[Rfam]
RNA sequence: UUCUGAGAAGGGCAAACCAGCGGAAACGCUGGGACGCAAAGCUACGGGCUUAAGGGCGCAACUCUCGCGUCUAUGGCCGCCGGGUUGCCAAG
Dot-bracket structure: ...........((...((((((....))))))...))..((((.((((((....((((.........))))...)))..)))))))......
The family of this 92-nucleotide RNA from Paenalicyclobacillus mengziensis is "c-di-GMP-I riboswitch aptamer".